[Rfam]
RNA sequence: GGCCAGUUUCUUCGGGGCGGAGCUCGACCGCCAACACAAGAAAUAGUCGACUUCAUCGACGCCCAGCGCGCCGAGUUCGGGGUCGAGCCCAUCUGCACCGUCCUGCGCAGCGCAGGGGUGUCGAUGGCCCCG
Numbered sequence: 001g002g003c004c005a006g007u008u009u010c011u012u013c014g015g016g017g018c019g020g021a022g023c024u025c026g027a028c029c030g031c032c033a034a035c036a037c038a039a040g041a042a043a044u045a046g047u048c049g050a051c052u053u054c055a056u057c058g059a060c061g062c063c064c065a066g067c068g069c070g071c072c073g074a075g076u077u078c079g080g081g082g083u084c085g086a087g088c089c090c091a092u093c094u095g096c097a098c099c100g101u102c103c104u105g106c107g108c109a110g111c112g113c114a115g116g117g118g119u120g121u122c123g124a125u126g127g128c129c130c131c132g
Stems, first nucleotide, its partner, number of pairs: 016032005078132005089127002092124002095121004
The record is a 132-nucleotide RNA sequence from Mycobacterium sherrisii, which matches "ALIL pseudoknot" in Rfam. A reference for the family is Mazauric et al. (2008), "Apical loop-internal loop RNA pseudoknots: a new type of stimulator of -1 translational frameshifting in bacteria", J Biol Chem. A search with the family's covariance model found it, with a score of 77 bits. Pairs were carried over by alignment from the consensus structure, which is taken from published work. The family's RNA type in Rfam is cis-regulatory element. The source organism's lineage runs through Bacteria, Bacillati, Actinomycetes, Mycobacteriaceae and Mycobacterium simiae complex.